[Rfam]
RNA sequence: GGUCAUGAGUACCAGCGUGAAGCCCCGGCUUGCUGGUCGGCAACCCUCCGGCCAGGGUGGGGUGCUCCGGGUGAUGACCCGGUCGUCCGGCGACACGCCGCACGACAAGCCGGUCC
Numbered sequence: 001g002g003u004c005a006u007g008a009g010u011a012c013c014a015g016c017g018u019g020a021a022g023c024c025c026c027g028g029c030u031u032g033c034u035g036g037u038c039g040g041c042a043a044c045c046c047u048c049c050g051g052c053c054a055g056g057g058u059g060g061g062g063u064g065c066u067c068c069g070g071g072u073g074a075u076g077a078c079c080c081g082g083u084c085g086u087c088c089g090g091c092g093a094c095a096c097g098c099c100g101c102a103c104g105a106c107a108a109g110c111c112g113g114u115c116c
Stems, first nucleotide, its partner, number of pairs: 001079004009038001011037006021030002039066003044062003048057002082106005088100004
Shown here is a 116-nucleotide RNA from Rhodococcus ruber, a member of the family "SAM (S-adenosyl methionine) riboswitch aptamer". For this family Rfam cites "The aptamer core of SAM-IV riboswitches mimics the ligand-binding site of SAM-I riboswitches" (Weinberg et al., RNA, 2008).